[Rfam]
RNA sequence: GAAGUCGGCUAGACAGCCGCUGCGCACGUCACCAAGCGUGUGUAGAGGAAAGUCCGGGCUCCAAAGAGCAGGAUGCCGGUUAACGGCCGGGCGCCGUGAGGCGACGGAAAGUGCCACAGAAAAUACACCGCCGAAGCCCUCCCGGGCUGGCAAGGGUGAAAUGGUGCGGUAAGAGCGCACCGCGUUCGUGGCAACACGAACGGCAGGGUAAACCCCAUCCGGAGCAAGACCGCGUAGGGGGCGAUAGCGUGGCUCGCGCUGCCCUCGGGUAGGUCGCUGGAGCGUGCGGGUAACCGUACGCCAAGAGGAAUGGCUGUCCGCGACAGAACCCGGCUUACCGGCCGGCUUCCCCC
Numbered sequence: 001g002a003a004g005u006c007g008g009c010u011a012g013a014c015a016g017c018c019g020c021u022g023c024g025c026a027c028g029u030c031a032c033c034a035a036g037c038g039u040g041u042g043u044a045g046a047g048g049a050a051a052g053u054c055c056g057g058g059c060u061c062c063a064a065a066g067a068g069c070a071g072g073a074u075g076c077c078g079g080u081u082a083a084c085g086g087c088c089g090g091g092c093g094c095c096g097u098g099a100g101g102c103g104a105c106g107g108a109a110a111g112u113g114c115c116a117c118a119g120a121a122a123a124u125a126c127a128c129c130g131c132c133g134a135a136g137c138c139c140u141c142c143c144g145g146g147c148u149g150g151c152a153a154g155g156g157u158g159a160a161a162u163g164g165u166g167c168g169g170u171a172a173g174a175g176c177g178c179a180c181c182g183c184g185u186u187c188g189u190g191g192c193a194a195c196a197c198g199a200a201c202g203g204c205a206g207g208g209u210a211a212a213c214c215c216c217a218u219c220c221g222g223a224g225c226a227a228g229a230c231c232g233c234g235u236a237g238g239g240g241g242c243g244a245u246a247g248c249g250u251g252g253c254u255c256g257c258g259c260u261g262c263c264c265u266c267g268g269g270u271a272g273g274u275c276g277c278u279g280g281a282g283c284g285u286g287c288g289g290g291u292a293a294c295c296g297u298a299c300g301c302c303a304a305g306a307g308g309a310a311u312g313g314c315u316g317u318c319c320g321c322g323a324c325a326g327a328a329c330c331c332g333g334c335u336u337a338c339c340g341g342c343c344g345g346c347u348u349c350c351c352c353c
Base pairs, nucleotide, nucleotide: 001349002348003347004346005345006344007343008342009341010340012318013317014316015315016314017313018312020045021044022043023042024041025040026039027038028037050336051335052334054333055332056331057330058329059224060223061222062221066255067254068253069252071220072219073218074217075216076090077089078088079087080086091105092103093102094101095100106215107214111213112212113209114208115207128155129154130151131150132149135148136147137146138145139144163181164180165179166178167177168176182204183202184201185200186199187198188197189196190195228275229274230273231272237266238265239264240263241262242261246260247259248258249257250256282301283300284299285298286297287296288295289294
The family of this 353-nucleotide sequence from a Betaproteobacteria bacterium is "Bacterial RNase P class A". It scores 322 bits against the family's covariance model. The family's RNA type in Rfam is ribozyme.